[Rfam]
RNA sequence: AUAAAAGCAGGGGUCUGUUGUUUGCUAUCAGCUGGCCUCUCGUGAACCUCAGGGAAAUCAUUCCCAUCGUUAUUGGGUGAACCAUUGCAGGUGUUGAAAUGAUGGUAUAUGGUUCAGUAAACAGUGGAACAUUA
Numbered sequence: 001a002u003a004a005a006a007g008c009a010g011g012g013g014u015c016u017g018u019u020g021u022u023u024g025c026u027a028u029c030a031g032c033u034g035g036c037c038u039c040u041c042g043u044g045a046a047c048c049u050c051a052g053g054g055a056a057a058u059c060a061u062u063c064c065c066a067u068c069g070u071u072a073u074u075g076g077g078u079g080a081a082c083c084a085u086u087g088c089a090g091g092u093g094u095u096g097a098a099a100u101g102a103u104g105g106u107a108u109a110u111g112g113u114u115c116a117g118u119a120a121a122c123a124g125u126g127g128a129a130c131a132u133u134a
Base pairs, nucleotide, nucleotide: 005049007047011038012037014035015034017032064127065126066125067124069122070121071120078116079115080114081113082112083111084110
RNA: Small nucleolar RNA snoR74